The record is a 64-nucleotide sequence, which matches "Selenocysteine insertion sequence 1" in Rfam.

RNA sequence: GGGACUCCAUGACGGGCCCUGUCCAAACCUCUUUAGAGAAGACAGGGCCCCGACCACCUGUCCU
Numbered sequence: 001g002g003g004a005c006u007c008c009a010u011g012a013c014g015g016g017c018c019c020u021g022u023c024c025a026a027a028c029c030u031c032u033u034u035a036g037a038g039a040a041g042a043c044a045g046g047g048c049c050c051c052g053a054c055c056a057c058c059u060g061u062c063c064u
Stems, first nucleotide, its partner, number of pairs: 001064005014050010029038003
It is annotated as a cis-regulatory element. From the family's description: The incorporation of selenocysteine into a protein sequence is directed by an in-frame UGA codon (usually a stop codon) within the coding region of the mRNA. Selenoprotein mRNAs contain a conserved secondary structure in the 3' UTR that is required for the distinction of UGA stop from UGA selenocysteine. The selenocysteine insertion sequence (SECIS) is around 60 nt in length and adopts a hairpin structure which is sufficiently well-defined and conserved to act as a computational screen for selenoprotein genes.